The family of this 46-nucleotide RNA from Carassius auratus is "Histone 3' UTR stem-loop". Pairs were carried over by alignment from the consensus structure, which is taken from published work. The source organism's lineage runs through Eukaryota, Euteleostomi, Actinopteri, Clupeocephala and Carassius.

[Rfam]
RNA sequence: ACAAAGGCUCUUUUAAGAGCCACACAACUUCUCACUGAAAGAGCGU
Numbered sequence: 001a002c003a004a005a006g007g008c009u010c011u012u013u014u015a016a017g018a019g020c021c022a023c024a025c026a027a028c029u030u031c032u033c034a035c036u037g038a039a040a041g042a043g044c045g046u
Stems, first nucleotide, its partner, number of pairs: 006021006